[Rfam]
RNA sequence: UUCGACGCUCUGGAAAGCGAGGCCCGGAAGGGACUCCACCGAAGGGGUAAGCCGGCUCGCCGCAAGGGCCGCGCGAAAGCUCUCAGGUUCCGUGACAGAGGGGGCAGC
Numbered sequence: 001u002u003c004g005a006c007g008c009u010c011u012g013g014a015a016a017g018c019g020a021g022g023c024c025c026g027g028a029a030g031g032g033a034c035u036c037c038a039c040c041g042a043a044g045g046g047g048u049a050a051g052c053c054g055g056c057u058c059g060c061c062g063c064a065a066g067g068g069c070c071g072c073g074c075g076a077a078a079g080c081u082c083u084c085a086g087g088u089u090c091c092g093u094g095a096c097a098g099a100g101g102g103g104g105c106a107g108c
Stems, first nucleotide, its partner, number of pairs: 006102001008100005019036003038088003041084002045082003051074002
RNA: Glycine riboswitch aptamer